Notes: This 173-nucleotide RNA from Mucilaginibacter paludis belongs to the Rfam family "Group II catalytic intron D1-D4-3". Rfam 15.1 lists 4,274 matches to the family in 1,585 species.
RNA sequence: UGGUAGGCGACUACGUCUCUGAAGGAAGCCGACGACAAAAGUUCGAGCCUACGAACAGAAACUGCAUAUGAGGCGGGAUAGUAUGGGUGAUGCUGCACAAGAAGCAAAAGCCCGACACUGUACAGGAUACUAUAACGUAAAUGCAGAGGCUUCAUGAACUGAAAGCGUGCACA
Numbered sequence: 001u002g003g004u005a006g007g008c009g010a011c012u013a014c015g016u017c018u019c020u021g022a023a024g025g026a027a028g029c030c031g032a033c034g035a036c037a038a039a040a041g042u043u044c045g046a047g048c049c050u051a052c053g054a055a056c057a058g059a060a061a062c063u064g065c066a067u068a069u070g071a072g073g074c075g076g077g078a079u080a081g082u083a084u085g086g087g088u089g090a091u092g093c094u095g096c097a098c099a100a101g102a103a104g105c106a107a108a109a110g111c112c113c114g115a116c117a118c119u120g121u122a123c124a125g126g127a128u129a130c131u132a133u134a135a136c137g138u139a140a141a142u143g144c145a146g147a148g149g150c151u152u153c154a155u156g157a158a159c160u161g162a163a164a165g166c167g168u169g170c171a172c173a
Stems, first nucleotide, its partner, number of pairs: 003014004031170001036165001040160006046151005062146006073138003078133006085113004091106004